Shown here is an 80-nucleotide sequence from Cyprinus carpio, a member of the family "mir-181 microRNA precursor family". The family has 157 seed sequences and 3,490 matches in Rfam 15.1.
RNA sequence: AGGUCAUAAUCAACAUUCAUUGCUGUCGGUGGGUUUAGUUUUGUAACAGCUCUCUGAACAAUGAAUGUAACUAUGGCCCA
Numbered sequence: 001a002g003g004u005c006a007u008a009a010u011c012a013a014c015a016u017u018c019a020u021u022g023c024u025g026u027c028g029g030u031g032g033g034u035u036u037a038g039u040u041u042u043g044u045a046a047c048a049g050c051u052c053u054c055u056g057a058a059c060a061a062u063g064a065a066u067g068u069a070a071c072u073a074u075g076g077c078c079c080a
Base pairs, nucleotide, nucleotide: 002079003078004076005075006074007073008072014067015066016065017064018063019062020061021060022059026057027056028055029054031052033050034049035048
NCBI's taxonomy places the organism under Eukaryota, Actinopterygii, Osteoglossocephalai, Cyprininae, Cyprinus carpio.